The record is a 593-nucleotide part of an RNA from Sporisorium reilianum, which matches "Eukaryotic large subunit ribosomal RNA" in Rfam.
RNA sequence: CGGGGAAAGAAGACCCUGUUGAGCUUGACUCUAGUUUGACAUUGUGAAGAGACAUGGAGGGUGUAGAAUAAGUGGGAGCUUCUGCGCCGGUGAAAUACCACUACCUCCAUCGUCUCUUUACUUAUCCAAUGAAGCGGAGCUGGGUUUAACGACCCACCUUUUGGACUUAAAAGCAUUCAUGCUUGAUCCGAAUUGGAGACAUUGUCAGGUGGGGAGUUUGGCUGGGGCGGCACAUCUGUUAAACGAUAACGCAGGUGUCCUAAGGGGGACUCAUGGAGAACAGAAAUCUCCAGUAGAACAAAAGGGUAAAAGUCCCCUUGAUUUUGAUUUUCAGUGUGAAUACAAACCAUGAAAGUGUGGCCUAUCGAUCCUUUAGAUCCUCGGCAUUUGAGGCUAGAGGUGCCAGAAAAGUUACCACAGGGAUAACUGGCUUGUGGCAGCCAAGCGUUCAUAGCGACGUUGCUUUUUGAUCCUUCGAUGUCGGCUCUUCCUAUCAUACCGAAGCAGAAUUCGGUAAGCGUUGGAUUGUUCACCCACUAAUAGGGAACGUGAGCUGGGUUUAGACCGUCGUGAGACAGGUUAGUUUUACCCUA
Numbered sequence: 001c002g003g004g005g006a007a008a009g010a011a012g013a014c015c016c017u018g019u020u021g022a023g024c025u026u027g028a029c030u031c032u033a034g035u036u037u038g039a040c041a042u043u044g045u046g047a048a049g050a051g052a053c054a055u056g057g058a059g060g061g062u063g064u065a066g067a068a069u070a071a072g073u074g075g076g077a078g079c080u081u082c083u084g085c086g087c088c089g090g091u092g093a094a095a096u097a098c099c100a101c102u103a104c105c106u107c108c109a110u111c112g113u114c115u116c117u118u119u120a121c122u123u124a125u126c127c128a129a130u131g132a133a134g135c136g137g138a139g140c141u142g143g144g145u146u147u148a149a150c151g152a153c154c155c156a157c158c159u160u161u162u163g164g165a166c167u168u169a170a171a172a173g174c175a176u177u178c179a180u181g182c183u184u185g186a187u188c189c190g191a192a193u194u195g196g197a198g199a200c201a202u203u204g205u206c207a208g209g210u211g212g213g214g215a216g217u218u219u220g221g222c223u224g225g226g227g228c229g230g231c232a233c234a235u236c237u238g239u240u241a242a243a244c245g246a247u248a249a250c251g252c253a254g255g256u257g258u259c260c261u262a263a264g265g266g267g268g269a270c271u272c273a274u275g276g277a278g279a280a281c282a283g284a285a286a287u288c289u290c291c292a293g294u295a296g297a298a299c300a301a302a303a304g305g306g307u308a309a310a311a312g313u314c315c316c317c318u319u320g321a322u323u324u325u326g327a328u329u330u331u332c333a334g335u336g337u338g339a340a341u342a343c344a345a346a347c348c349a350u351g352a353a354a355g356u357g358u359g360g361c362c363u364a365u366c367g368a369u370c371c372u373u374u375a376g377a378u379c380c381u382c383g384g385c386a387u388u389u390g391a392g393g394c395u396a397g398a399g400g401u402g403c404c405a406g407a408a409a410a411g412u413u414a415c416c417a418c419a420g421g422g423a424u425a426a427c428u429g430g431c432u433u434g435u436g437g438c439a440g441c442c443a444a445g446c447g448u449u450c451a452u453a454g455c456g457a458c459g460u461u462g463c464u465u466u467u468u469g470a471u472c473c474u475u476c477g478a479u480g481u482c483g484g485c486u487c488u489u490c491c492u493a494u495c496a497u498a499c500c501g502a503a504g505c506a507g508a509a510u511u512c513g514g515u516a517a518g519c520g521u522u523g524g525a526u527u528g529u530u531c532a533c534c535c536a537c538u539a540a541u542a543g544g545g546a547a548c549g550u551g552a553g554c555u556g557g558g559u560u561u562a563g564a565c566c567g568u569c570g571u572g573a574g575a576c577a578g579g580u581u582a583g584u585u586u587u588a589c590c591c592u593a
Stems, first nucleotide, its partner, number of pairs: 003592003007587002015421004020417002022413005028217004035209007044121010054110007071102005078085002125197005135190004143154004171184005220233001221231003234256006259360002265317006271297002274292006298307002322346003327341004348357003371399006379393004430471001432469001434468001436464006445455002482557001483555004487549001488546005495520001498515006522536003526532001563581004567576003